[Rfam]
The record is a 145-nucleotide RNA from Nitratireductor mangrovi, which matches "FMN riboswitch aptamer (RFN element)" in Rfam.
RNA sequence: CGGCGUUCUCAGGGCGGGGUGGAAGUCCCCACCGGCGGUAAGGGGGCAACCCCAAGCCCGCGAGCGCCGCGGCGACAGUCGCGGGUCAGCAGAUUCGGUGCGAAUCCGAAGCCGACGGUGAAAGUCCGGAUGGAAGAGAACGGAU
Numbered sequence: 001c002g003g004c005g006u007u008c009u010c011a012g013g014g015c016g017g018g019g020u021g022g023a024a025g026u027c028c029c030c031a032c033c034g035g036c037g038g039u040a041a042g043g044g045g046g047c048a049a050c051c052c053c054a055a056g057c058c059c060g061c062g063a064g065c066g067c068c069g070c071g072g073c074g075a076c077a078g079u080c081g082c083g084g085g086u087c088a089g090c091a092g093a094u095u096c097g098g099u100g101c102g103a104a105u106c107c108g109a110a111g112c113c114g115a116c117g118g119u120g121a122a123a124g125u126c127c128g129g130a131u132g133g134a135a136g137a138g139a140a141c142g143g144a145u
Base pairs, nucleotide, nucleotide: 004142005141006140007139008138009137010136017029018028019027031125032124033114034113035061036060037059038058056112057111064090065089094110095109096108097107098106116128117127118126
Dot-bracket structure: ...(((((((......(((.......))).[[((((((.................[[))))..((.......................))...(((((.......)))))]])).(((.....]]))).......)))))))...
Lineage of the source: Bacteria > Pseudomonadati > Pseudomonadota > Hyphomicrobiales > Nitratireductor.